[Rfam]
RNA sequence: CUGAAUAUAGUAGAUGCCAUUCAUAUAUCCUCGAUAAUAUGGUUCGAAAGUUUCUACCAAAUCACCGUAAAUGAUUUGACUAUGAAGGCAGAUUUUAAAAUG
Numbered sequence: 001c002u003g004a005a006u007a008u009a010g011u012a013g014a015u016g017c018c019a020u021u022c023a024u025a026u027a028u029c030c031u032c033g034a035u036a037a038u039a040u041g042g043u044u045c046g047a048a049a050g051u052u053u054c055u056a057c058c059a060a061a062u063c064a065c066c067g068u069a070a071a072u073g074a075u076u077u078g079a080c081u082a083u084g085a086a087g088g089c090a091g092a093u094u095u096u097a098a099a100a101u102g
Stems, first nucleotide, its partner, number of pairs: 018088001020086006031047004058078007

Shown here is a 102-nucleotide RNA sequence from Bacillus aquiflavi, a member of the family "Purine riboswitch aptamer". The base pairs follow the family's consensus structure, which is taken from published work. It scores 84 bits against the family's covariance model. Gene Ontology term of the family: purine nucleobase biosynthetic process.